[Rfam]
RNA: MIR2912 microRNA precursor family
Organism: Populus tomentosa
RNA sequence: UCUAGAACUCGAGAUAUGGGCUAAACACUGAACAAUAUCUGGGCUGCAGGACAAAUUCAAACUUCUCUUUUAAUGCUAAGAUUAGGACUUCUAAAUAGUAGAAUUAAGUCUUAGACUCCUUAUGAAUGUUUUAGGCCUAUGUCUUAGCUUUCUAGC
Numbered sequence: 001u002c003u004a005g006a007a008c009u010c011g012a013g014a015u016a017u018g019g020g021c022u023a024a025a026c027a028c029u030g031a032a033c034a035a036u037a038u039c040u041g042g043g044c045u046g047c048a049g050g051a052c053a054a055a056u057u058c059a060a061a062c063u064u065c066u067c068u069u070u071u072a073a074u075g076c077u078a079a080g081a082u083u084a085g086g087a088c089u090u091c092u093a094a095a096u097a098g099u100a101g102a103a104u105u106a107a108g109u110c111u112u113a114g115a116c117u118c119c120u121u122a123u124g125a126a127u128g129u130u131u132u133a134g135g136c137c138u139a140u141g142u143c144u145u146a147g148c149u150u151u152c153u154a155g156c
Stems, first nucleotide, its partner, number of pairs: 002155006008147002011145010021134005027129002035123003041119003045115001048112005054105005060099001062098002074086001